[Rfam]
mir-8834 microRNA precursor family: a 105-nucleotide RNA from Canis lupus.
Its family is annotated with RISC complex and miRNA-mediated post-transcriptional gene silencing in the Gene Ontology.
The family has 2 seed sequences and 13,926 matches in Rfam 15.1.

RNA sequence: AGGAGGAACAACCGCAGGGGUUGCUGCAGCUCUGGAGCCCUGGAGUCAGCCCCUGCAGUAAUUCCAGAGCUCUCCAUCUGCAGGGCCUGGAGGCUCUGGGGCCGC
Number, nucleotide and partner (000 for none) at each position: 001a000002g097003g096004a095005g094006g000007a000008a000009c089010a088011a000012c085013c084014g000015c000016a000017g000018g000019g078020g077021u076022u000023g074024c000025u000026g000027c000028a071029g070030c069031u068032c067033u066034g065035g064036a063037g000038c000039c000040c058041u057042g056043g000044a000045g000046u000047c000048a000049g000050c000051c000052c000053c000054u000055g000056c042057a041058g040059u000060a000061a000062u000063u036064c035065c034066a033067g032068a031069g030070c029071u028072c000073u000074c023075c000076a021077u020078c019079u000080g000081c000082a000083g000084g013085g012086c000087c000088u010089g009090g000091a000092g000093g000094c005095u004096c003097u002098g000099g000100g000101g000102c000103c000104g000105c000

The match comes from Rfam's covariance-model search (53 bits).